This 110-nucleotide sequence from Papio anubis belongs to the Rfam family "Y RNA". The source organism's lineage runs through Eukaryota, Teleostomi, Dipnotetrapodomorpha, Cercopithecoidea and Papio. By type it is a non-coding RNA gene. Rfam describes the family as follows. Y RNAs are components of the Ro ribonucleoprotein particle (Ro RNP), in association with Ro60 and La proteins.
RNA sequence: AGAUGGUCGGAAGGUAGUGAGUUAUCUCCAUUGAUUGUUCACAGUCAGUUAUGAAUUGAACUCCUUGUUCUCUUCCCCCUCUUCUCACUACUCUACUUGCCUUUUGUUUU
Numbered sequence: 001a002g003a004u005g006g007u008c009g010g011a012a013g014g015u016a017g018u019g020a021g022u023u024a025u026c027u028c029c030a031u032u033g034a035u036u037g038u039u040c041a042c043a044g045u046c047a048g049u050u051a052u053g054a055a056u057u058g059a060a061c062u063c064c065u066u067g068u069u070c071u072c073u074u075c076c077c078c079c080u081c082u083u084c085u086c087a088c089u090a091c092u093c094u095a096c097u098u099g100c101c102u103u104u105u106g107u108u109u110u
Base pairs, nucleotide, nucleotide: 002105003104005102006101008099010098011097014094016089017088018087019086020085021084033072034071037068038067